[Rfam]
RNA sequence: UAUGGUAAGAUACUUAUUGGUCUAUGACCCCUUGCCACUUAUUCACCUUUGGGCAAGCAUAUUACACUCGCAAAAAGCGAUAAAGGAGAAAUAUAUG
Numbered sequence: 001u002a003u004g005g006u007a008a009g010a011u012a013c014u015u016a017u018u019g020g021u022c023u024a025u026g027a028c029c030c031c032u033u034g035c036c037a038c039u040u041a042u043u044c045a046c047c048u049u050u051g052g053g054c055a056a057g058c059a060u061a062u063u064a065c066a067c068u069c070g071c072a073a074a075a076a077g078c079g080a081u082a083a084a085g086g087a088g089a090a091a092u093a094u095a096u097g
Stems, first nucleotide, its partner, number of pairs: 019029004031057006044088001046086004068080004
Notes:
PreQ1-II (pre queuosine) riboswitch aptamer: a 97-nucleotide RNA from Floricoccus tropicus. NCBI's taxonomy places the organism under Bacteria, Bacillati, Lactobacillales, Streptococcaceae, Floricoccus. Pairs were carried over by alignment from the consensus structure, which is taken from published work. Its family is annotated with queuosine biosynthetic process in the Gene Ontology. On this family, see Meyer et al., RNA 2008: "Confirmation of a second natural preQ1 aptamer class in Streptococcaceae bacteria". preQ1-II riboswitch was first reported for Weinberg et al. 2007 it was recognised in Streptococcaceae and Lactococcus families in 5' untranslated regions of genes of a membrane protein classified as COG4708 or DUF988. Meyers et al. 2008 confirm that preQ1-II recognise the queuosine (Q) precursor pre-queuosine 1 (preQ1).